[Rfam]
RNA sequence: GCCCAAGGUCACGUGGGGUGCAGGCUUCAAACCUGUAGCUGUCUAGCGACAGAGUGGUUCAAUUCCACCUUUUGGGC
Numbered sequence: 001g002c003c004c005a006a007g008g009u010c011a012c013g014u015g016g017g018g019u020g021c022a023g024g025c026u027u028c029a030a031a032c033c034u035g036u037a038g039c040u041g042u043c044u045a046g047c048g049a050c051a052g053a054g055u056g057g058u059u060c061a062a063u064u065c066c067a068c069c070u071u072u073u074g075g076g077c
Base pairs, nucleotide, nucleotide: 001077002076003075004074005073006072007071008069010018012016019037020036021035022034023033024032039052040051041050042049043048054068055067056066057065